[Rfam]
This 383-nucleotide part of an RNA from Halorubrum sp. Ib24 belongs to the Rfam family "Archaeal large subunit ribosomal RNA". The organism belongs to Halorubrum, within Archaea. A search with the family's covariance model found it, with a score of 828 bits.
RNA sequence: CACAGUAUGCAGCGAUAGUUCGGCGUGAGGAACCUCGACGGGGCCUGCAUGGAGGCAAGGGUUUCCUCGGCACUGGCCACUCAGCCGAGGUCGCCGGUCCUAGAUGCACCGCAACUUCGACUGCCCCCAUCAACGCGGAACUGUGUUAAUAUUCCAGUGCCAUCGUGGCAGUAACGUCGACGCCGGUGAUGGACGCUGAGCCGGGGCCUUCGCCCCGGUCGAAAUCAUGGAAACUCGUGGAAGCCGUCACGGCACGGAAGGCGAGCGAACCGUGAGAAUAGCGCAAGGUCAAGCCGUACAUAGGGCCCGUGAAAAGACGAAGCACGAUGUCGUACCGAGAUCCGACACAGGUGCGUCUGGGGCAGCGAAAGGGGCACGGCUGU
Numbered sequence: 001c002a003c004a005g006u007a008u009g010c011a012g013c014g015a016u017a018g019u020u021c022g023g024c025g026u027g028a029g030g031a032a033c034c035u036c037g038a039c040g041g042g043g044c045c046u047g048c049a050u051g052g053a054g055g056c057a058a059g060g061g062u063u064u065c066c067u068c069g070g071c072a073c074u075g076g077c078c079a080c081u082c083a084g085c086c087g088a089g090g091u092c093g094c095c096g097g098u099c100c101u102a103g104a105u106g107c108a109c110c111g112c113a114a115c116u117u118c119g120a121c122u123g124c125c126c127c128c129a130u131c132a133a134c135g136c137g138g139a140a141c142u143g144u145g146u147u148a149a150u151a152u153u154c155c156a157g158u159g160c161c162a163u164c165g166u167g168g169c170a171g172u173a174a175c176g177u178c179g180a181c182g183c184c185g186g187u188g189a190u191g192g193a194c195g196c197u198g199a200g201c202c203g204g205g206g207c208c209u210u211c212g213c214c215c216c217g218g219u220c221g222a223a224a225u226c227a228u229g230g231a232a233a234c235u236c237g238u239g240g241a242a243g244c245c246g247u248c249a250c251g252g253c254a255c256g257g258a259a260g261g262c263g264a265g266c267g268a269a270c271c272g273u274g275a276g277a278a279u280a281g282c283g284c285a286a287g288g289u290c291a292a293g294c295c296g297u298a299c300a301u302a303g304g305g306c307c308c309g310u311g312a313a314a315a316g317a318c319g320a321a322g323c324a325c326g327a328u329g330u331c332g333u334a335c336c337g338a339g340a341u342c343c344g345a346c347a348c349a350g351g352u353g354c355g356u357c358u359g360g361g362g363c364a365g366c367g368a369a370a371g372g373g374g375c376a377c378g379g380c381u382g383u
Stems, first nucleotide, its partner, number of pairs: 019040001022039001024037002043380003053358002055354002059336002065090006074083002095332003100135001103127001106124003110119002140158004145154001161329007176318003182306003187303001189301003195294003200219006225275004234265005243253003282287001342351002360377001362375002